[Rfam]
RNA: mir-5928 microRNA precursor family
Organism: Haemonchus placei
RNA sequence: AUCCCAAACAUGAAGUAGAGUAGAUUAGAAGGAUCUCUUGACCCUACUAAACUACUCUACUUCGAGUUUGUGCCC
Numbered sequence: 001a002u003c004c005c006a007a008a009c010a011u012g013a014a015g016u017a018g019a020g021u022a023g024a025u026u027a028g029a030a031g032g033a034u035c036u037c038u039u040g041a042c043c044c045u046a047c048u049a050a051a052c053u054a055c056u057c058u059a060c061u062u063c064g065a066g067u068u069u070g071u072g073c074c075c
Base pairs, nucleotide, nucleotide: 003072005070006069007068008067009066011064012063013062014061015060016059017058018057019056020055021054022053023052025050026049027048028047030045032043034041035040